[Rfam]
RNA sequence: AAAAACUCCCAUUAAGGGUGUUGUACCCCAGCCGGGAGCAACUUUACCGUAUUCAGAAUUU
Numbered sequence: 001a002a003a004a005a006c007u008c009c010c011a012u013u014a015a016g017g018g019u020g021u022u023g024u025a026c027c028c029c030a031g032c033c034g035g036g037a038g039c040a041a042c043u044u045u046a047c048c049g050u051a052u053u054c055a056g057a058a059u060u061u
Stems, first nucleotide, its partner, number of pairs: 017045002020042005026036002
RNA: Plastid-psbN 5UTR RNA
Organism: Calothrix sp. PCC 6303